[Rfam]
RNA sequence: UAAGCCCGAGGUCAAGCUUGGAAGUGGUCAUCCAAUGUAAGUGCGUUCUUUUUCCGCCGCCACUUCUCCCAAAAGGGCUUGACCUUAGGGUGGAGGA
Numbered sequence: 001u002a003a004g005c006c007c008g009a010g011g012u013c014a015a016g017c018u019u020g021g022a023a024g025u026g027g028u029c030a031u032c033c034a035a036u037g038u039a040a041g042u043g044c045g046u047u048c049u050u051u052u053u054c055c056g057c058c059g060c061c062a063c064u065u066c067u068c069c070c071a072a073a074a075g076g077g078c079u080u081g082a083c084c085u086u087a088g089g090g091u092g093g094a095g096g097a
Stems, first nucleotide, its partner, number of pairs: 005090003008086001015079004020067009041058001043057003070075001
Dot-bracket structure: ....((((......((((.(((((((((............(.(((.........)))))))))))))..(....)))))......).))).......

Shown here is a 97-nucleotide RNA, a member of the family "DUF1874 RNA". The base pairs follow the family's consensus structure, which is taken from published work. The family's RNA type in Rfam is cis-regulatory element.